[Rfam]
Nucleotides: 163
Base pairs, nucleotide, nucleotide: 012149013148014147020034021033022032036144037143038142039141040140045084046083085130086129087128093105094104095103096102108124109123110122111121
Number, partner (000 for none) and nucleotide at each position: 001000g002000c003000g004000c005000g006000a007000c008000c009000g010000a011000g012149g013148c014147c015000a016000c017000a018000a019000a020034c021033c022032c023000g024000u025000a026000u027000g028000g029000c030000a031000g032022g033021g034020g035000a036144c037143g038142g039141g040140g041000g042000a043000a044000c045084c046083a047000c048000u049000u050000c051000c052000g053000g054000g055000c056000g057000u058000c059000g060000u061000g062000c063000u064000u065000c066000a067000u068000c069000a070000a071000g072000c073000g074000c075000g076000g077000c078000g079000u080000c081000c082000u083046u084045g085130g086129g087128g088000u089000g090000a091000a092000g093105c094104u095103c096102g097000c098000c099000u100000a101000g102096c103095g104094a105093g106000c107000c108124g109123g110122g111121g112000g113000a114000c115000c116000u117000c118000a119000c120000c121111u122110c123109c124108c125000g126000a127000a128087c129086c130085c131000g132000a133000c134000a135000g136000c137000u138000c139000a140040c141039c142038u143037c144036g145000c146000a147014g148013g149012c150000g151000u152000c153000g154000g155000a156000g157000a158000g159000g160000c161000u162000c163000a
A member of the RNA family "c-di-AMP riboswitch aptamer (ydaO/yuaA leader)" from Quadrisphaera granulorum, 163 nucleotides long. It scores 65 bits against the family's covariance model. The base pairs follow the family's consensus structure. Rfam links the family to the GO terms cyclic-di-AMP binding and regulation of gene expression. Taxonomically the source falls in Quadrisphaera (Bacteria, Actinomycetota, Kineosporiales, Kineosporiaceae).